[Rfam]
RNA sequence: UGCUGUGAUGGUGUAAUUUGCGUCCUACUUGGUGCGUAGCGACAGUUGCCUGCUGUCACAUGCUUGCGCCAAAGGUUGACGAACAUUUAUUCUGAGCU
Numbered sequence: 001u002g003c004u005g006u007g008a009u010g011g012u013g014u015a016a017u018u019u020g021c022g023u024c025c026u027a028c029u030u031g032g033u034g035c036g037u038a039g040c041g042a043c044a045g046u047u048g049c050c051u052g053c054u055g056u057c058a059c060a061u062g063c064u065u066g067c068g069c070c071a072a073a074g075g076u077u078g079a080c081g082a083a084c085a086u087u088u089a090u091u092c093u094g095a096g097c098u
Base pairs, nucleotide, nucleotide: 002097003096021081022080023079024078030071031070032069033068034067039063040062041057042056043055044054045053

This 98-nucleotide RNA from Silurus meridionalis belongs to the Rfam family "Small nucleolar RNA SNORD16". Its family is annotated with nucleolus and RNA processing in the Gene Ontology. By type it is a C/D-box small nucleolar RNA. The organism belongs to Silurus, within Eukaryota. Pairs were carried over by alignment from the consensus structure, which was predicted with PFOLD.